[Rfam]
RNA sequence: GUGGGUUAUGGUGAUAUGGUACCAAAAACUUAUGUUGGAAUGAUGGUUGGUGGUUUAUGUGCAUUAACAGGUGUAUUAACUAUAGCUUUGCCUGUUCCUGUUAUUGUCGCUAAC
Numbered sequence: 001g002u003g004g005g006u007u008a009u010g011g012u013g014a015u016a017u018g019g020u021a022c023c024a025a026a027a028a029c030u031u032a033u034g035u036u037g038g039a040a041u042g043a044u045g046g047u048u049g050g051u052g053g054u055u056u057a058u059g060u061g062c063a064u065u066a067a068c069a070g071g072u073g074u075a076u077u078a079a080c081u082a083u084a085g086c087u088u089u090g091c092c093u094g095u096u097c098c099u100g101u102u103a104u105u106g107u108c109g110c111u112a113a114c
Stems, first nucleotide, its partner, number of pairs: 001114002004111002008107004013102004018097002021095002037077002040074001050062002
RNA: Potassium channel RNA editing signal
Organism: Rotaria magnacalcarata